[Rfam]
RNA sequence: GACUGUUACAGUUUUUCAGAAUUUGUCUAACAGGUUUUCCGGUCUUCACCAGAAAGCUCCC
Dot-bracket structure: ................................(((((((.(((....))).)))))))...
Numbered sequence: 001g002a003c004u005g006u007u008a009c010a011g012u013u014u015u016u017c018a019g020a021a022u023u024u025g026u027c028u029a030a031c032a033g034g035u036u037u038u039c040c041g042g043u044c045u046u047c048a049c050c051a052g053a054a055a056g057c058u059c060c061c
Stems, first nucleotide, its partner, number of pairs: 033058007041050003